[Rfam]
RNA sequence: UUCUUAUCCAGAGAGACGGAGGGACAGGCCCGAAGAAGUCUCGGCAACAGAUUCUAUUAGAAAACUGUGCCAAUUCCUGCAAAUACUAUUUUGAUAGUAUUUGAAAGAUGAGGU
Numbered sequence: 001u002u003c004u005u006a007u008c009c010a011g012a013g014a015g016a017c018g019g020a021g022g023g024a025c026a027g028g029c030c031c032g033a034a035g036a037a038g039u040c041u042c043g044g045c046a047a048c049a050g051a052u053u054c055u056a057u058u059a060g061a062a063a064a065c066u067g068u069g070c071c072a073a074u075u076c077c078u079g080c081a082a083a084u085a086c087u088a089u090u091u092u093g094a095u096a097g098u099a100u101u102u103g104a105a106a107g108a109u110g111a112g113g114u
Base pairs, nucleotide, nucleotide: 002113003112004111005110006109007108008107013042014041015040016039017038021031022030023029025079026078027077028076043071044070045069046068048067049066052061053060075106080103081102082101083100084099085098086097087096088095
RNA: SAM riboswitch aptamer (S box leader)